Glycine riboswitch aptamer: a 103-nucleotide RNA sequence from Belnapia rosea. The source organism's lineage runs through Bacteria, Pseudomonadati, Acetobacterales, Roseomonadaceae and Belnapia. The family is grouped with related families in Rfam's "Glycine riboswitch clan". The pairing is the family consensus, mapped onto this sequence.
[Rfam]
RNA sequence: AGAUACCGCGCGGGAGAGAGGGGCUGCCCGGCCAACCGGGUGCCUCCGCCGAAGGCGCAACCGGCCCCCGGAAACGCUCAGGCAGAAGGGCCGCGCGGAGAAG
Numbered sequence: 001a002g003a004u005a006c007c008g009c010g011c012g013g014g015a016g017a018g019a020g021g022g023g024c025u026g027c028c029c030g031g032c033c034a035a036c037c038g039g040g041u042g043c044c045u046c047c048g049c050c051g052a053a054g055g056c057g058c059a060a061c062c063g064g065c066c067c068c069c070g071g072a073a074a075c076g077c078u079c080a081g082g083c084a085g086a087a088g089g090g091c092c093g094c095g096c097g098g099a100g101a102a103g
Base pairs, nucleotide, nucleotide: 006098007097008096009095010094011093012092013091020046021045022044023043048083049082050081051079052078055077056076057075061071062070